Rfam assigns this 82-nucleotide RNA from Campylorhamphus procurvoides to the family "mir-199 microRNA precursor family". From the family's description: This family consists of the microRNA (miRNA) precursor mir-199 which appears to be specific to humans. Animal miRNAs are transcribed as ~70nt precursors and subsequently processed by the Dicer enzyme to give a ~22nt product. In this case the mature sequence comes from the 3' arm of the precursor. The extents of the hairpin precursors are not generally known and are estimated based on hairpin prediction. For this family Rfam cites "miRNPs: a novel class of ribonucleoproteins containing numerous microRNAs" (Mourelatos et al., Genes Dev, 2002).

[Rfam]
RNA sequence: GGCUGGCAUUCCCAGUGUUCAGACUACCUGUUCAGGUGGGCUCGGUGUUGUACAGUAGUCUGCACAUUGGUUAUGCCGGCCC
Numbered sequence: 001g002g003c004u005g006g007c008a009u010u011c012c013c014a015g016u017g018u019u020c021a022g023a024c025u026a027c028c029u030g031u032u033c034a035g036g037u038g039g040g041c042u043c044g045g046u047g048u049u050g051u052a053c054a055g056u057a058g059u060c061u062g063c064a065c066a067u068u069g070g071u072u073a074u075g076c077c078g079g080c081c082c
Stems, first nucleotide, its partner, number of pairs: 012070007020062007028055004033050002